[Rfam]
The record is a 383-nucleotide RNA from Tenuibacillus multivorans, which matches "Bacterial RNase P class B" in Rfam. The source organism's lineage runs through Bacteria, Bacillati, Bacilli, Bacillaceae and Tenuibacillus. The literature on the family includes a 1998 paper in Annu Rev Biochem by Frank and Pace, "Ribonuclease P: unity and diversity in a tRNA processing ribozyme". Pairs were carried over by alignment from the consensus structure, which is taken from published work.
RNA sequence: GUGUUUACGUAACCGCUCUGUUCACUGAACAGAGAGGAAAGUCCAUGCUCACACAAGCUGAGAUGCUCGUAGUGUUCGUGCUUGACGAAACCAUAAGUCAAGGUAGCUAAUACGUUAGCUAACGGCGGGGAAUCAGUCUAAGUCGUCAUGAUAGGACUGGAUUACCUUUAAUGUGCCACAGAGACGAACUUGAUUGGAAACAAUCAAGCUGGAACGCGGUAAACCCCACGAGUGAGCAACCCAAAUGAUGGUAGGGGCACUUUCUGCGGGGAAAUGAACCUAGCAGAAAGACAAGUUAAUUGACUUGUAGAUAGAUGGUUACGACCUAAGUACGAGGUUGACCACCGUUAGUAGUACAAAGGUACAGAACAUGGCUUACACGA
Numbered sequence: 001g002u003g004u005u006u007a008c009g010u011a012a013c014c015g016c017u018c019u020g021u022u023c024a025c026u027g028a029a030c031a032g033a034g035a036g037g038a039a040a041g042u043c044c045a046u047g048c049u050c051a052c053a054c055a056a057g058c059u060g061a062g063a064u065g066c067u068c069g070u071a072g073u074g075u076u077c078g079u080g081c082u083u084g085a086c087g088a089a090a091c092c093a094u095a096a097g098u099c100a101a102g103g104u105a106g107c108u109a110a111u112a113c114g115u116u117a118g119c120u121a122a123c124g125g126c127g128g129g130g131a132a133u134c135a136g137u138c139u140a141a142g143u144c145g146u147c148a149u150g151a152u153a154g155g156a157c158u159g160g161a162u163u164a165c166c167u168u169u170a171a172u173g174u175g176c177c178a179c180a181g182a183g184a185c186g187a188a189c190u191u192g193a194u195u196g197g198a199a200a201c202a203a204u205c206a207a208g209c210u211g212g213a214a215c216g217c218g219g220u221a222a223a224c225c226c227c228a229c230g231a232g233u234g235a236g237c238a239a240c241c242c243a244a245a246u247g248a249u250g251g252u253a254g255g256g257g258c259a260c261u262u263u264c265u266g267c268g269g270g271g272a273a274a275u276g277a278a279c280c281u282a283g284c285a286g287a288a289a290g291a292c293a294a295g296u297u298a299a300u301u302g303a304c305u306u307g308u309a310g311a312u313a314g315a316u317g318g319u320u321a322c323g324a325c326c327u328a329a330g331u332a333c334g335a336g337g338u339u340g341a342c343c344a345c346c347g348u349u350a351g352u353a354g355u356a357c358a359a360a361g362g363u364a365c366a367g368a369a370c371a372u373g374g375c376u377u378a379c380a381c382g383a
Stems, first nucleotide, its partner, number of pairs: 004383002008323007016034006039377003043374005048236005053070002056067003076231005081102006103123001104121006124226002127167003135158004142152003173224002175220003189208008240256003260290007291308006325362003330357004